[Rfam]
RNA sequence: UUCCCUGGCUUCGGGGAGUAGCCCAGGCCCUCCGGGCCGCCUCGCAUCAACAUACUUGGCGAUCGCCAUGGUGCGCGGGCAAGGCAAGCGCCUUGC
Numbered sequence: 001u002u003c004c005c006u007g008g009c010u011u012c013g014g015g016g017a018g019u020a021g022c023c024c025a026g027g028c029c030c031u032c033c034g035g036g037c038c039g040c041c042u043c044g045c046a047u048c049a050a051c052a053u054a055c056u057u058g059g060c061g062a063u064c065g066c067c068a069u070g071g072u073g074c075g076c077g078g079g080c081a082a083g084g085c086a087a088g089c090g091c092c093u094u095g096c
Stems, first nucleotide, its partner, number of pairs: 026038003040078002043075007057068004079096007
This 96-nucleotide sequence from Arenimonas metalli belongs to the Rfam family "Manganese Mn2+ riboswitch aptamer (yybP-ykoY)". Rfam 15.1 lists 1,126 matches to the family in 1,062 species. About the family: This RNA was originally discovered in E. coli during a large scale screen and was named SraF. The family was later found to exist upstream of related families of protein genes in many bacteria, including the the yybP and ykoK genes in B. subtilis. The specific functions of these proteins are unknown, but this structured RNA element may be involved in their genetic regulation as a riboswitch. The source organism's lineage runs through Bacteria, Gammaproteobacteria, Lysobacteraceae, Arenimonas and Arenimonas metalli. A search with the family's covariance model found it, with a score of 46 bits.